[Rfam]
RNA sequence: GCCCUGUGGUUCCUGGAACCUGCUAUUCCAUGCAGUUCUCCAGGUUUUGGAUAGGGCGUAUAUUAAUUCUGUGAUUUUUGCGUAGAGCCUCUUAGCUUUAUAUAUCAGUCUCUAUAGCCCGGUCACAGAAACAUUU
Numbered sequence: 001g002c003c004c005u006g007u008g009g010u011u012c013c014u015g016g017a018a019c020c021u022g023c024u025a026u027u028c029c030a031u032g033c034a035g036u037u038c039u040c041c042a043g044g045u046u047u048u049g050g051a052u053a054g055g056g057c058g059u060a061u062a063u064u065a066a067u068u069c070u071g072u073g074a075u076u077u078u079u080g081c082g083u084a085g086a087g088c089c090u091c092u093u094a095g096c097u098u099u100a101u102a103u104a105u106c107a108g109u110c111u112c113u114a115u116a117g118c119c120c121g122g123u124c125a126c127a128g129a130a131a132c133a134u135u136u
Base pairs, nucleotide, nucleotide: 001057002056003055004054007049008048012044013043014042015041016040017039020035021034022033023032069128071126072125073124074123075122076121080118081117082115083114084113085112087110089108090107093104

Small nucleolar RNA SNORA84: a 136-nucleotide RNA sequence from Anguilla anguilla.
A reference for the family is Marker et al. (2002), "Experimental RNomics: identification of 140 candidates for small non-messenger RNAs in the plant Arabidopsis thaliana", Curr Biol.
It scores 86 bits against the family's covariance model.